This 183-nucleotide sequence from Monodelphis domestica belongs to the Rfam family "Small nucleolar RNA SNORA23". Rfam classes the family as an H/ACA-box small nucleolar RNA. A search with the family's covariance model found it, with a score of 154 bits. The family's consensus secondary structure was predicted with RNAalifold. Lineage of the source: Eukaryota > Gnathostomata > Amniota > Didelphimorphia > Monodelphis. Rfam's curators write: The members of this family belong to the H/ACA class of snoRNAs which are thought to guide the sites of modification of uridines to pseudouridines. This family includes human snoRNA ACA23 (SNORA23) and mouse snoMBI-1. For this family Rfam cites "RNomics: an experimental approach that identifies 201 candidates for novel, small, non-messenger RNAs in mouse" (Huttenhofer et al., EMBO J, 2001). Rfam 15.1 lists 1,092 matches to the family in 632 species.
[Rfam]
RNA sequence: CAGCCUUUGUGUGCAUAGCUUCCAUCUGUGUCUGGUAGCAUUGUCUGUUUGUGUUUUGCAUUCAGAUGCUGCUGCCCACAUAUAAUCCUGCAGCCAGAAAGAAAAAUGGGAUCAUAGUACUGGCCUAGUGAUGUCUUUUUGGACAAACCUACCACUGGUCAGCCUCCAAACUCCCAGACAUUU
Numbered sequence: 001c002a003g004c005c006u007u008u009g010u011g012u013g014c015a016u017a018g019c020u021u022c023c024a025u026c027u028g029u030g031u032c033u034g035g036u037a038g039c040a041u042u043g044u045c046u047g048u049u050u051g052u053g054u055u056u057u058g059c060a061u062u063c064a065g066a067u068g069c070u071g072c073u074g075c076c077c078a079c080a081u082a083u084a085a086u087c088c089u090g091c092a093g094c095c096a097g098a099a100a101g102a103a104a105a106a107u108g109g110g111a112u113c114a115u116a117g118u119a120c121u122g123g124c125c126u127a128g129u130g131a132u133g134u135c136u137u138u139u140u141g142g143a144c145a146a147a148c149c150u151a152c153c154a155c156u157g158g159u160c161a162g163c164c165u166c167c168a169a170a171c172u173c174c175c176a177g178a179c180a181u182u183u
Stems, first nucleotide, its partner, number of pairs: 013091003029082003033078003036074005043067005050060003107176005120162006127156004132147001133144003